[Rfam]
RNA sequence: GAAAACAAAAACCCGCGUCCGGGUAUACGCGGGUUUUUGUCUCUGUUUCCAGAUACUGGGAGAGGAGAAACCGGAGGAAGAGCUUAUGGGGAAACCUAAGUCUUCUCCGCGG
Numbered sequence: 001g002a003a004a005a006c007a008a009a010a011a012c013c014c015g016c017g018u019c020c021g022g023g024u025a026u027a028c029g030c031g032g033g034u035u036u037u038u039g040u041c042u043c044u045g046u047u048u049c050c051a052g053a054u055a056c057u058g059g060g061a062g063a064g065g066a067g068a069a070a071c072c073g074g075a076g077g078a079a080g081a082g083c084u085u086a087u088g089g090g091g092a093a094a095c096c097u098a099a100g101u102c103u104u105c106u107c108c109g110c111g112g
Stems, first nucleotide, its partner, number of pairs: 011034008035060003039056001072109004077105004082101005
The family of this 112-nucleotide RNA from Effusibacillus dendaii is "ylbH leader". NCBI's taxonomy places the organism under Bacteria, Bacillati, Bacilli, Alicyclobacillaceae, Effusibacillus. This family is a putative regulatory RNA structure that is found upstream of the ylbH gene in B. subtilis and related low GC Gram-positive bacteria. A reference for the family is Barrick et al. (2004), "New RNA motifs suggest an expanded scope for riboswitches in bacterial genetic control", Proc Natl Acad Sci U S A. By type it is a cis-regulatory leader.